[Rfam]
RNA sequence: CUCGAGCUGUCUCUCAUGUCUAGACCAUUUGUGAGAAGGGAAAUUUUGCUUGCACCUAUAAUCCACCAAUUCUCUCUAUCUACUAUACUGUGUUAGCUCAUAGUUGUGAAAAUAGUUUUUUUUUUUUAAACAUAAAACAUAAAAACCACAAUACCUAGUUCUUGUGUACCUCUAGAUAUCCUCUUGCUGCACAUGAUUCCCCAGCUACUAAAACGUUAUGAAAUUAGUCGUCCAUUAAGAAAUGUAAACUCUAUAUGUUAGUCCCAGCCAUUAGAGCCGUGCUCACUUCUCGGCUGAGCAGUUUUAUUUCUUCCUUCCUAAUAUAAUAAUUUAGUUCAUAAUGAUUUCUGUGUCCAUGAUGGCUAAGAAUUUGCACCUUAAGCUAGUAUACUAUCUACAGUAAUAGUUUUCCUAAUAAAAAAGAAAAUGGGGAGUGAGGAGGUAUUGCGGUUAUUCCCUUCUCAUCGAUGGUCUAGAUUUGCGAGGUGACUCUCAUGAAAG
Numbered sequence: 001c002u003c004g005a006g007c008u009g010u011c012u013c014u015c016a017u018g019u020c021u022a023g024a025c026c027a028u029u030u031g032u033g034a035g036a037a038g039g040g041a042a043a044u045u046u047u048g049c050u051u052g053c054a055c056c057u058a059u060a061a062u063c064c065a066c067c068a069a070u071u072c073u074c075u076c077u078a079u080c081u082a083c084u085a086u087a088c089u090g091u092g093u094u095a096g097c098u099c100a101u102a103g104u105u106g107u108g109a110a111a112a113u114a115g116u117u118u119u120u121u122u123u124u125u126u127u128a129a130a131c132a133u134a135a136a137a138c139a140u141a142a143a144a145a146c147c148a149c150a151a152u153a154c155c156u157a158g159u160u161c162u163u164g165u166g167u168a169c170c171u172c173u174a175g176a177u178a179u180c181c182u183c184u185u186g187c188u189g190c191a192c193a194u195g196a197u198u199c200c201c202c203a204g205c206u207a208c209u210a211a212a213a214c215g216u217u218a219u220g221a222a223a224u225u226a227g228u229c230g231u232c233c234a235u236u237a238a239g240a241a242a243u244g245u246a247a248a249c250u251c252u253a254u255a256u257g258u259u260a261g262u263c264c265c266a267g268c269c270a271u272u273a274g275a276g277c278c279g280u281g282c283u284c285a286c287u288u289c290u291c292g293g294c295u296g297a298g299c300a301g302u303u304u305u306a307u308u309u310c311u312u313c314c315u316u317c318c319u320a321a322u323a324u325a326a327u328a329a330u331u332u333a334g335u336u337c338a339u340a341a342u343g344a345u346u347u348c349u350g351u352g353u354c355c356a357u358g359a360u361g362g363c364u365a366a367g368a369a370u371u372u373g374c375a376c377c378u379u380a381a382g383c384u385a386g387u388a389u390a391c392u393a394u395c396u397a398c399a400g401u402a403a404u405a406g407u408u409u410u411c412c413u414a415a416u417a418a419a420a421a422a423g424a425a426a427a428u429g430g431g432g433a434g435u436g437a438g439g440a441g442g443u444a445u446u447g448c449g450g451u452u453a454u455u456c457c458c459u460u461c462u463c464a465u466c467g468a469u470g471g472u473c474u475a476g477a478u479u480u481g482c483g484a485g486g487u488g489a490c491u492c493u494c495a496u497g498a499a500a501g
Base pairs, nucleotide, nucleotide: 002499004492005491006490008488009487010486011485012484013483015481016480018478019477020476021475022474023473024472025471026470027469028468029467031465032464033463034462035461036460037459038458039457040456041455052445054443055442056441067436068435073433074432075431076430077429078428079427
RNA: MIR824 microRNA precursor family
Organism: Microthlaspi erraticum